[Rfam]
RNA sequence: GCAAAAAAAACCUCGUAAGCAGUCCCUACGAGGUGCCUAUUCACAUACAUUCCGUAUGUAUCAGGCUAUGGGAGAGGAGAAACCGGAGGAAGAACUUAUGGGGAAACGUAAGUCUUCUCCGCGG
Numbered sequence: 001g002c003a004a005a006a007a008a009a010a011c012c013u014c015g016u017a018a019g020c021a022g023u024c025c026c027u028a029c030g031a032g033g034u035g036c037c038u039a040u041u042c043a044c045a046u047a048c049a050u051u052c053c054g055u056a057u058g059u060a061u062c063a064g065g066c067u068a069u070g071g072g073a074g075a076g077g078a079g080a081a082a083c084c085g086g087a088g089g090a091a092g093a094a095c096u097u098a099u100g101g102g103g104a105a106a107c108g109u110a111a112g113u114c115u116u117c118u119c120c121g122c123g124g
Stems, first nucleotide, its partner, number of pairs: 011033007019025001034072001036070001038068001043059006084121004089117004094113005
Notes: Rfam assigns this 124-nucleotide RNA from Alkalihalobacillus alcalophilus to the family "ylbH leader". Its family is annotated with regulation of gene expression in the Gene Ontology. NCBI's taxonomy places the organism under Bacteria, Bacillota, Caryophanales, Alkalihalobacillus, Alkalihalobacillus alcalophilus. By type it is a cis-regulatory leader. The pairing is the family consensus, mapped onto this sequence.